[Rfam]
RNA: Bacterial RNase P class A
Organism: Sinimarinibacterium arenosum
RNA sequence: GGAGUCGGCCGGGCAAUCGCUGUCGCGCAAGCGGUGGAGGAAAGUCCGGGCUCCGCAGGGCAGAGUGCCAGGUAACGCCUGGGCGGCGCGAGCCGACGGAAAGUGCAACAGAGAACAGACCGCCGAACGCCUUUGCUUCGCCGUAAGGCAGGGCAGAGGGCGUGGUAAGGGUGAAACGGUGCGGUAAGAGCGCACCGCGCGACCGGCAACGGGAGCGGCACGGCAAACCCCACUUGGAGCAAGACCAAAUAGGGAAGGUGUGCACCUUCGGGUGUACGACGCGUGGCCCGCGUGCCUUCCGGGUAGGUUGCUUGAGCGUGACGGUGACGUCGCGCCUAGAGGAAUGAUUGCCGCAGGCACGCAAGUGCCUGCACAGAACCCGGCUUACAGGCCGACUCCCCAU
Number, nucleotide and partner (000 for none) at each position: 001g399002g398003a397004g396005u395006c394007g393008g392009c391010c390011g388012g352013g351014c350015a349016a348017u347018c346019g000020c037021u036022g035023u034024c033025g032026c031027g000028c000029a000030a000031g026032c025033g024034g023035u022036g021037g020038a000039g000040g000041a000042a386043a385044g384045u000046c383047c382048g381049g380050g379051c239052u238053c237054c236055g000056c000057a000058g288059g287060g000061c285062a000063g235064a234065g233066u232067g231068c082069c081070a080071g079072g078073u000074a000075a000076c000077g000078c072079c071080u070081g069082g068083g097084c095085g094086g093087c092088g000089c000090g000091a000092g087093c086094c085095g084096a000097c083098g230099g229100a000101a000102a000103g228104u227105g224106c223107a000108a000109c000110a000111g000112a000113g000114a000115a000116c000117a000118g000119a000120c170121c169122g166123c165124c164125g000126a000127a163128c162129g161130c160131c159132u158133u157134u156135g000136c000137u000138u000139c000140g000141c000142c000143g000144u000145a000146a000147g000148g000149c000150a000151g000152g000153g000154c000155a000156g134157a133158g132159g131160g130161c129162g128163u127164g124165g123166u122167a000168a000169g121170g120171g000172u000173g000174a000175a000176a000177c000178g196179g195180u194181g193182c192183g191184g000185u000186a000187a000188g000189a000190g000191c183192g182193c181194a180195c179196c178197g219198c217199g216200c215201g000202a000203c212204c211205g210206g000207c000208a000209a000210c205211g204212g203213g000214a000215g200216c199217g198218g000219c197220a000221c000222g000223g106224c105225a000226a000227a104228c103229c099230c098231c067232a066233c065234u064235u063236g054237g053238a052239g051240c000241a000242a000243g309244a308245c307246c306247a000248a000249a000250u000251a000252g000253g300254g299255a298256a297257g296258g295259u000260g000261u000262g000263c000264a000265c000266c000267u000268u000269c000270g000271g000272g000273u000274g000275u000276a000277c000278g000279a293280c292281g291282c290283g289284u000285g061286g000287c059288c058289c283290g282291c281292g280293u279294g000295c258296c257297u256298u255299c254300c253301g000302g000303g000304u000305a000306g246307g245308u244309u243310g000311c000312u000313u000314g000315a000316g335317c334318g333319u332320g331321a330322c329323g328324g000325u000326g000327a000328c323329g322330u321331c320332g319333c318334g317335c316336c000337u000338a000339g000340a000341g000342g000343a000344a000345u000346g018347a017348u016349u015350g014351c013352c012353g000354c000355a000356g000357g000358c000359a000360c000361g000362c000363a000364a000365g000366u000367g000368c000369c000370u000371g000372c000373a000374c000375a000376g000377a000378a000379c050380c049381c048382g047383g046384c044385u043386u042387a000388c011389a000390g010391g009392c008393c007394g006395a005396c004397u003398c002399c001400c000401c000402a000403u000